The family of this 33-nucleotide sequence is "L31-Firmicutes ribosomal protein leader". By type it is a cis-regulatory leader. Clan: Ribosomal Protein L31 Leader clan.
RNA sequence: CUAUGAUUGAAAUGAAAAUCAUGGCAGAAGGAG
Numbered sequence: 001c002u003a004u005g006a007u008u009g010a011a012a013u014g015a016a017a018a019u020c021a022u023g024g025c026a027g028a029a030g031g032a033g
Stems, first nucleotide, its partner, number of pairs: 001024005007017002